[Rfam]
RNA: mir-9229 microRNA precursor family
Organism: Myotis lucifugus
RNA sequence: GAGACACCCUUAUGGGACAGGACUUGCUGCAGUAGGGCUUUGGUGCUAACUGAGUCUGCCCCUUGAGUGCGUCUCU
Numbered sequence: 001g002a003g004a005c006a007c008c009c010u011u012a013u014g015g016g017a018c019a020g021g022a023c024u025u026g027c028u029g030c031a032g033u034a035g036g037g038c039u040u041u042g043g044u045g046c047u048a049a050c051u052g053a054g055u056c057u058g059c060c061c062c063u064u065g066a067g068u069g070c071g072u073c074u075c076u
Base pairs, nucleotide, nucleotide: 001075002074003073004072005071007069009067010066011065012064014062015061016060018058019057021056022055023054030052031051032050033049035047036046037044038043